[Rfam]
RNA sequence: CCAUUACUUUUUCUCCCUUUUUUGUAGUGGGUUGUCUUUACUUACCUUAAACUCCCUUUUAUACUUUUAGCGGUUGUUAGCAGCCACUAAGAGUAUUUUUUUGUAAAAAACACUAAAUAAAUGAAAACUCCUCGAACAAGGGAAAGUUCGAGGAGUUCGGCAUUUACCAAUAUUUAUAAAUGCCACUGGGGAUUUUCUAAGUGAACAAAGAUAUGGAUGUUUGGGAGAGCAUCCACUUGGAGAAUUUACCAUAGAUAGAUAGCGACAAGUUGUAAUGUAGUAUAAAUCAUACAAUUCUUGUAGUGCAUCAUAUAUAGCACUGAAUUAUUAAAUUCCUGAUAAAUAAGAAAAGACUGGAAUAAAAGUACCUCAUCAAGUAUAUUUAAUUUACGCGGGAUUUAAAGAGGUGAUAGAAGGUUGAGCAAUUUUAACAUCAUGGGAUCUUUAAUGCUUAUAGCUGUUUUAGUUUUAGCAGUGUAUGUUAUUACCAAAGUGAUUACCAAAUUAAAAAAUAAGUAGAGUUUAACUAAAA
Numbered sequence: 001c002c003a004u005u006a007c008u009u010u011u012u013c014u015c016c017c018u019u020u021u022u023u024g025u026a027g028u029g030g031g032u033u034g035u036c037u038u039u040a041c042u043u044a045c046c047u048u049a050a051a052c053u054c055c056c057u058u059u060u061a062u063a064c065u066u067u068u069a070g071c072g073g074u075u076g077u078u079a080g081c082a083g084c085c086a087c088u089a090a091g092a093g094u095a096u097u098u099u100u101u102u103g104u105a106a107a108a109a110a111c112a113c114u115a116a117a118u119a120a121a122u123g124a125a126a127a128c129u130c131c132u133c134g135a136a137c138a139a140g141g142g143a144a145a146g147u148u149c150g151a152g153g154a155g156u157u158c159g160g161c162a163u164u165u166a167c168c169a170a171u172a173u174u175u176a177u178a179a180a181u182g183c184c185a186c187u188g189g190g191g192a193u194u195u196u197c198u199a200a201g202u203g204a205a206c207a208a209a210g211a212u213a214u215g216g217a218u219g220u221u222u223g224g225g226a227g228a229g230c231a232u233c234c235a236c237u238u239g240g241a242g243a244a245u246u247u248a249c250c251a252u253a254g255a256u257a258g259a260u261a262g263c264g265a266c267a268a269g270u271u272g273u274a275a276u277g278u279a280g281u282a283u284a285a286a287u288c289a290u291a292c293a294a295u296u297c298u299u300g301u302a303g304u305g306c307a308u309c310a311u312a313u314a315u316a317g318c319a320c321u322g323a324a325u326u327a328u329u330a331a332a333u334u335c336c337u338g339a340u341a342a343a344u345a346a347g348a349a350a351a352g353a354c355u356g357g358a359a360u361a362a363a364a365g366u367a368c369c370u371c372a373u374c375a376a377g378u379a380u381a382u383u384u385a386a387u388u389u390a391c392g393c394g395g396g397a398u399u400u401a402a403a404g405a406g407g408u409g410a411u412a413g414a415a416g417g418u419u420g421a422g423c424a425a426u427u428u429u430a431a432c433a434u435c436a437u438g439g440g441a442u443c444u445u446u447a448a449u450g451c452u453u454a455u456a457g458c459u460g461u462u463u464u465a466g467u468u469u470u471a472g473c474a475g476u477g478u479a480u481g482u483u484a485u486u487a488c489c490a491a492a493g494u495g496a497u498u499a500c501c502a503a504a505u506u507a508a509a510a511a512a513u514a515a516g517u518a519g520a521g522u523u524u525a526a527c528u529a530a531a532a
Stems, first nucleotide, its partner, number of pairs: 002277006010269003015264001016262001021255005027249007035241002037205008049195003053191004062095004066090001070087001072085005126157012159184008214235009278529004283525005290518003293326005299319003303315003355490003360385004365380004389479005395470003399466006406459003417432006436455005
Record summary:
The record is a 532-nucleotide RNA from Listeria monocytogenes, which matches "Listeria sRNA rli33" in Rfam. The UCCC motifs prevent ribosomal binding to oppA mRNA. By type it is a small RNA.